Rfam assigns this 77-nucleotide sequence from Parvimonas micra to the family "dfrA-dnaX RNA". The family's RNA type in Rfam is small RNA. NCBI's taxonomy places the organism under Bacteria, Bacillota, Tissierellia, Tissierellales, Parvimonas. It scores 54 bits against the family's covariance model.
RNA sequence: AAACAAAGUUUUAAUCUAUAAAUAUUUCAUCACAAUCAUCCUUAAAAAAAUAAUUAAAAAGGAGAUUGUGAUAUAAU
Numbered sequence: 001a002a003a004c005a006a007a008g009u010u011u012u013a014a015u016c017u018a019u020a021a022a023u024a025u026u027u028c029a030u031c032a033c034a035a036u037c038a039u040c041c042u043u044a045a046a047a048a049a050a051u052a053a054u055u056a057a058a059a060a061g062g063a064g065a066u067u068g069u070g071a072u073a074u075a076a077u
Base pairs, nucleotide, nucleotide: 029072030071031070032069033068034067035066036065
Dot-bracket structure: ............................((((((((............................)))))))).....